[Rfam]
RNA sequence: GGAGUCGGCCGGACAGUCGCUGUGCCUUAGGGCAUGGAGGAAAGUCCGGGCUCCAUAGGGCAGGGUGCCAGGUAACGCCUGGGGGGCGCGAGCCUACGGAAAGUGCCACAGAGAACAUACCGCCGAUGGCCCGGUUCGCCGGUGCACAGGUAAGGGUGAAAAGGUGCGGUAAGAGCGCACCGCGCGGGUGGUAACAUGCCGCGGCACGGUAAACCCCACCCGGAGCAAGACCAAAUAGGGGAGCAAUGGUGUGGCCCGCACUGCUCCCGGGUAGGUCGCUUGAGGCGAGUGGUGACGCUCGUCCCAGAGGAAUGACUGUCCUCGACAGAACCCGGCUUACAGGCCGGCUCCCACC
Dot-bracket structure: ((((((((((((((((((.(((((((....)))))))....[[[.[[[[[((((...[[[[.((((((((((.....)))))(((((....)))).)((...(((((............(((((..((................))..)))..)).......((((((.......))))))(((((((((....))).))))).)..)))..)))))))))))))...((((......((((((...(((((.]]]]))))))))))).....))))......((((((((....))))))))..........)))))))..........]]]]]]]].).))))))))))....

Rfam assigns this 355-nucleotide sequence from Alkalilimnicola sp. S0819 to the family "Bacterial RNase P class A". A search with the family's covariance model found it, with a score of 336 bits. The source organism's lineage runs through Bacteria, Pseudomonadati, Gammaproteobacteria, Chromatiales and Alkalilimnicola. The family's RNA type in Rfam is ribozyme. Rfam describes the family as follows. Ribonuclease P (RNase P) is a ubiquitous endoribonuclease, found in archaea, bacteria and eukarya as well as chloroplasts and mitochondria.